Description: Rfam assigns this 349-nucleotide RNA from Umboniibacter marinipuniceus to the family "Bacterial RNase P class A".
[Rfam]
RNA sequence: GGAGUCGGCUAGGCAAUCGCUAUCUAUUUAUAGGUAGAGGAAAGUCCGGGCACCAAAGGGUAGAGUGCCAGAUAACGUCUGGGGGGUGAAAGCCCACGGAAAGUGCAGCAGAGAGUAGACCGCCUAAGCUUCUUCGGAAGCCGGUAAGGCUGAAAGGGUGCGGUAAGAGCGCACCGCGUAACUGGUAACAGCUUACGGCAAGGUAAACCCCACUCGGUGCAAGACCAAAUAGGCCUCCGUUGGCGCGACCCGCGCUGGAGGCGGGUAGGUUGCUUGAGACUAUCGGUGACGAUAGUCCUAGAGGAAUGAUUGCUCACGACAGAACCCGGCUUAUCGGUUGGCUCCCAAA
Numbered sequence: 001g002g003a004g005u006c007g008g009c010u011a012g013g014c015a016a017u018c019g020c021u022a023u024c025u026a027u028u029u030a031u032a033g034g035u036a037g038a039g040g041a042a043a044g045u046c047c048g049g050g051c052a053c054c055a056a057a058g059g060g061u062a063g064a065g066u067g068c069c070a071g072a073u074a075a076c077g078u079c080u081g082g083g084g085g086g087u088g089a090a091a092g093c094c095c096a097c098g099g100a101a102a103g104u105g106c107a108g109c110a111g112a113g114a115g116u117a118g119a120c121c122g123c124c125u126a127a128g129c130u131u132c133u134u135c136g137g138a139a140g141c142c143g144g145u146a147a148g149g150c151u152g153a154a155a156g157g158g159u160g161c162g163g164u165a166a167g168a169g170c171g172c173a174c175c176g177c178g179u180a181a182c183u184g185g186u187a188a189c190a191g192c193u194u195a196c197g198g199c200a201a202g203g204u205a206a207a208c209c210c211c212a213c214u215c216g217g218u219g220c221a222a223g224a225c226c227a228a229a230u231a232g233g234c235c236u237c238c239g240u241u242g243g244c245g246c247g248a249c250c251c252g253c254g255c256u257g258g259a260g261g262c263g264g265g266u267a268g269g270u271u272g273c274u275u276g277a278g279a280c281u282a283u284c285g286g287u288g289a290c291g292a293u294a295g296u297c298c299u300a301g302a303g304g305a306a307u308g309a310u311u312g313c314u315c316a317c318g319a320c321a322g323a324a325c326c327c328g329g330c331u332u333a334u335c336g337g338u339u340g341g342c343u344c345c346c347a348a349a
Base pairs, nucleotide, nucleotide: 001345002344003343004342005341006340007339008338009337010336011334012314013313014312015311016310017309018308020037021036022035023034024033025032026031042332043331044330046329047328048327049326050325051219052218053217054216058251059250060249061248063215064214065213066212067211068082069081070080071079072078083097084095085094086093087092098210099209103208104207105204106203120149121148122145123144124143128141129140130139131138132137157175158174159173160172161171162170176199177197178196179195180194181193182191183190184189223271224270225269226268233262234261235260236259237258238257242256243255244254245253246252278297279296280295281294282293283292284291285290
Its family is annotated with ribonuclease P activity, dimeric ribonuclease P complex and tRNA processing in the Gene Ontology.